U2 spliceosomal RNA: a 180-nucleotide sequence from Xenopus tropicalis. By type it is a spliceosomal small nuclear RNA. The family is grouped with related families in Rfam's "U2 clan".

RNA sequence: AUUCAAUUAAACUUUGUUGAAACCUUAUCUGUUCUUAUCAGUUUAAUAUCUGAUACGUCCCCUAUCUGGGGACCAUAUAUUAAAUGGAUUUUUGGAACAGGGAGAUGGAAGAAGAGCUUGCUCUGUCCACUCCACGCAUCGACCUGGUAUUGCAGUACCUCCAGGACCGGUGCACCUCUC
Numbered sequence: 001a002u003u004c005a006a007u008u009a010a011a012c013u014u015u016g017u018u019g020a021a022a023c024c025u026u027a028u029c030u031g032u033u034c035u036u037a038u039c040a041g042u043u044u045a046a047u048a049u050c051u052g053a054u055a056c057g058u059c060c061c062c063u064a065u066c067u068g069g070g071g072a073c074c075a076u077a078u079a080u081u082a083a084a085u086g087g088a089u090u091u092u093u094g095g096a097a098c099a100g101g102g103a104g105a106u107g108g109a110a111g112a113a114g115a116g117c118u119u120g121c122u123c124u125g126u127c128c129a130c131u132c133c134a135c136g137c138a139u140c141g142a143c144c145u146g147g148u149a150u151u152g153c154a155g156u157a158c159c160u161c162c163a164g165g166a167c168c169g170g171u172g173c174a175c176c177u178c179u180c
Stems, first nucleotide, its partner, number of pairs: 036055006057073006101133004107127002113124004136173006143165005

Source information:
The match comes from Rfam's covariance-model search (123 bits).